[Rfam]
RNA sequence: CAGAAAUGGGGGCUCCUUCGAGGACAAAAAAAACAUUUCGGACGUCUUUUCGCACAUUGAAGCAGUCAUCCUUUGGACUGAACGGAGCCCCUAAUUCUU
Number, nucleotide and partner (000 for none) at each position: 001c000002a000003g000004a000005a000006a000007u093008g092009g091010g090011g089012g088013c087014u086015c085016c084017u000018u082019c000020g000021a000022g079023g078024a000025c076026a000027a074028a073029a072030a000031a000032a000033a000034c000035a000036u000037u000038u000039c000040g000041g000042a000043c000044g000045u000046c000047u000048u000049u000050u000051c000052g000053c000054a000055c000056a000057u000058u000059g000060a000061a000062g000063c000064a000065g000066u000067c000068a000069u000070c000071c000072u029073u028074u027075g000076g025077a000078c023079u022080g000081a000082a018083c000084g016085g015086a014087g013088c012089c011090c010091c009092u008093a007094a000095u000096u000097c000098u000099u000
Rfam assigns this 99-nucleotide sequence from Amborella trichopoda to the family "MIR319 microRNA precursor family". Pairs were carried over by alignment from the consensus structure, which was predicted with RNAalifold. Its family is annotated with miRNA-mediated post-transcriptional gene silencing and RISC complex in the Gene Ontology.